[Rfam]
RNA sequence: ACCGUCUUUGUCAAGGGCAGUAUCUGUUCAAUGAACGUUAAGUGAGAACAGGAUUGCUGACACCAUUUGACACUCAAAAACCCGCACCACCGUUCUAUGUCGUAGUUCGGUUAGGGUGCAAUUUUUGGAACC
Numbered sequence: 001a002c003c004g005u006c007u008u009u010g011u012c013a014a015g016g017g018c019a020g021u022a023u024c025u026g027u028u029c030a031a032u033g034a035a036c037g038u039u040a041a042g043u044g045a046g047a048a049c050a051g052g053a054u055u056g057c058u059g060a061c062a063c064c065a066u067u068u069g070a071c072a073c074u075c076a077a078a079a080a081c082c083c084g085c086a087c088c089a090c091c092g093u094u095c096u097a098u099g100u101c102g103u104a105g106u107u108c109g110g111u112u113a114g115g116g117u118g119c120a121a122u123u124u125u126u127g128g129a130a131c132c
Stems, first nucleotide, its partner, number of pairs: 008016002017057004023052007035043002084119005090110003095105004

This 132-nucleotide sequence from Trichonephila clavipes belongs to the Rfam family "U4atac minor spliceosomal RNA". It scores 72 bits against the family's covariance model. About the family: U4atac is an essential component of the minor U12-type spliceosome complex which is required for removal of the rarer class of eukaryotic introns (AT-AC, U12-type). On this family, see Lorkovic et al., RNA 2005: "Evolutionary conservation of minor U12-type spliceosome between plants and humans". By type it is a spliceosomal small nuclear RNA. Clan: U4 clan.